[Rfam]
RNA sequence: GUUUGUCUGUGUAUGGAUGAUGUUCAGCACCAAGAACAAAUGUGUCUGUCUGCCCAUGGACGGCGUUCAGUACCACGGACAGGUGUGUUUGCUU
Numbered sequence: 001g002u003u004u005g006u007c008u009g010u011g012u013a014u015g016g017a018u019g020a021u022g023u024u025c026a027g028c029a030c031c032a033a034g035a036a037c038a039a040a041u042g043u044g045u046c047u048g049u050c051u052g053c054c055c056a057u058g059g060a061c062g063g064c065g066u067u068c069a070g071u072a073c074c075a076c077g078g079a080c081a082g083g084u085g086u087g088u089u090u091g092c093u094u
Stems, first nucleotide, its partner, number of pairs: 004085007018075002021072004026067003030063002034055001037052002040049003
Shown here is a 94-nucleotide RNA from Branchiostoma floridae, a member of the family "mir-2060 microRNA precursor family". Rfam links the family to the GO terms miRNA-mediated post-transcriptional gene silencing and RISC complex. The source organism's lineage runs through Eukaryota, Metazoa, Leptocardii, Amphioxiformes and Branchiostoma.